[Rfam]
RNA: mir-196 microRNA precursor family
Organism: Prolemur simus
RNA sequence: UGAGUGAAUUAGGUAGUUUCAUGUUGUUGGCCCUGGGUUUCUGAACACAACAACAUCGAACCACCUGAUCCACGGC
Numbered sequence: 001u002g003a004g005u006g007a008a009u010u011a012g013g014u015a016g017u018u019u020c021a022u023g024u025u026g027u028u029g030g031c032c033c034u035g036g037g038u039u040u041c042u043g044a045a046c047a048c049a050a051c052a053a054c055a056u057c058g059a060a061c062c063a064c065c066u067g068a069u070c071c072a073c074g075g076c
Stems, first nucleotide, its partner, number of pairs: 004073003008069007016061004022055008